[Rfam]
The family of this 195-nucleotide sequence from Anopheles stephensi is "drz-agam-2-2 ribozyme". Taxonomically the source falls in Neocellia (Eukaryota, Opisthokonta, Insecta, Neoptera). For this family Rfam cites "Widespread occurrence of self-cleaving ribozymes" (Webb et al., Science, 2009). Rfam 15.1 lists 486 matches to the family in 10 species. Rfam links the family to the GO term catalytic activity. The match comes from Rfam's covariance-model search (66 bits).
RNA sequence: CUUUGUUAUCGACUGUCGCGACCGUGGAUCCGACACUUUCUUUAGAGUGCCUCAGGCUCUCCCACCGAAAUCCUAUCCCGCCACGUCCUCGUUGUGCAAAGUGGUGUAACUUCCCCCACCCCAUAUCCAAGCUUGGAUGCACGGGCCAGUCACAACCCCCUGGGCCGAUGGUGUAGCAUGGCUAAACAGGAGGAG
Numbered sequence: 001c002u003u004u005g006u007u008a009u010c011g012a013c014u015g016u017c018g019c020g021a022c023c024g025u026g027g028a029u030c031c032g033a034c035a036c037u038u039u040c041u042u043u044a045g046a047g048u049g050c051c052u053c054a055g056g057c058u059c060u061c062c063c064a065c066c067g068a069a070a071u072c073c074u075a076u077c078c079c080g081c082c083a084c085g086u087c088c089u090c091g092u093u094g095u096g097c098a099a100a101g102u103g104g105u106g107u108a109a110c111u112u113c114c115c116c117c118a119c120c121c122c123a124u125a126u127c128c129a130a131g132c133u134u135g136g137a138u139g140c141a142c143g144g145g146c147c148a149g150u151c152a153c154a155a156c157c158c159c160c161u162g163g164g165c166c167g168a169u170g171g172u173g174u175a176g177c178a179u180g181g182c183u184a185a186a187c188a189g190g191a192g193g194a195g
Stems, first nucleotide, its partner, number of pairs: 014098003022067001024065002026062003030056002071195001073193002076191002079189001083095003087104002110180001112178001114176001117173004125169003133155003136151003157164002
Dot-bracket structure: .............(((.....(.(((((.((.......................))...))).)).)...[.[[.[[.[...(((.[[....))))))....]].....(.(.(..((((....(((.....((((((..........))).))).((....))..)))))))..).).)........]]]]].]